[Rfam]
Nucleotides: 367
Base pairs, nucleotide, nucleotide: 001363002362003361004360005359006358007357008356009355010354011352012331013330014329015328016327017326018325020047021046022045023044024043025042026041027040028039052350053349054348056347057346058345059344060343061233062232063231064230068267069266070265071264073229074228075227076226077225078092079091080090081089093107094105095104096103097102108224109223113222114221115218116217117216129165130164131161132160133159134158135157136156137155138154139153140152141151142150143149173191174190175189176188177187178186193213194211195210196209197208198207199206200205237288238287239286240285248278249277251275258272259271260270261269262268295314296313297312298311299310300309301308302307
Number, partner (000 for none) and nucleotide at each position: 001363u002362g003361a004360g005359u006358a007357a008356a009355u010354c011352g012331a013330a014329c015328g016327a017326u018325c019000g020047c021046a022045u023044g024043u025042a026041u027040a028039a029000a030000a031000u032000c033000g034000c035000a036000a037000g038000g039028u040027u041026a042025u043024a044023c045022a046021u047020g048000a049000g050000g051000a052350a053349a054348g055000u056347c057346c058345g059344a060343g061233c062232u063231c064230c065000g066000u067000a068267g069266g070265g071264c072000a073229g074228g075227a076226u077225g078092c079091u080090g081089g082000a083000u084000a085000a086000u087000a088000c089081c090080c091079a092078g093107u094105g095104g096103a097102g098000g099000c100000g101000a102097c103096u104095c105094c106000a107093a108224g109223g110000a111000a112000a113222g114221u115218g116217c117216a118000a119000c120000a121000g122000a123000a124000a125000u126000a127000u128000a129165c130164c131161g132160c133159c134158u135157a136156a137155u138154a139153c140152u141151u142150u143149a144000u145000u146000u147000a148000u149143u150142a151141a152140a153139g154138u155137a156136u157135u158134a159133g160132g161131u162000a163000a164130g165129g166000g167000u168000g169000g170000a171000a172000a173191g174190g175189u176188g177187a178186g179000g180000u181000a182000a183000g184000a185000g186178c187177u188176c189175a190174c191173c192000a193213g194211c195210a196209a197208u198207u199206a200205g201000g202000c203000g204000a205200c206199u207198a208197a209196u210195u211194g212000g213193c214000u215000a216117u217116g218115u219000a220000a221114a222113c223109c224108c225077c226076a227075u228074c229073c230064g231063g232062a233061g234000c235000a236000a237288g238287a239286c240285c241000a242000a243000g244000u245000a246000g247000g248278g249277a250000c251275a252000a253000a254000a255000a256000a257000g258272g259271c260270g261269g262268c263000g264071g265070c266069c267068c268262g269261u270260c271259g272258c273000u274000g275251u276000u277249u278248c279000g280000u281000g282000g283000u284000a285240g286239g287238u288237c289000g290000c291000u292000u293000g294000a295314a296313c297312c298311u299310a300309u301308u302307g303000g304000c305000a306000a307302c308301a309300a310299u311298a312297g313296g314295u315000c316000u317000a318000g319000a320000u321000a322000g323000a324000u325018g326017a327016u328015c329014g330013u331012u332000u333000a334000g335000u336000a337000a338000c339000a340000g341000a342000a343060c344059u345058c346057g347056g348054c349053u350052u351000a352011u353000a354010g355009a356008u357007u358006u359005a360004c361003u362002c363001a364000u365000c366000u367000u
Annotation
The family of this 367-nucleotide RNA from Garciella nitratireducens is "Bacterial RNase P class A". A search with the family's covariance model found it, with a score of 318 bits. About the family: Ribonuclease P (RNase P) is a ubiquitous endoribonuclease, found in archaea, bacteria and eukarya as well as chloroplasts and mitochondria. Its best characterised activity is the generation of mature 5'-ends of tRNAs by cleaving the 5'-leader elements of precursor-tRNAs. It is annotated as a ribozyme.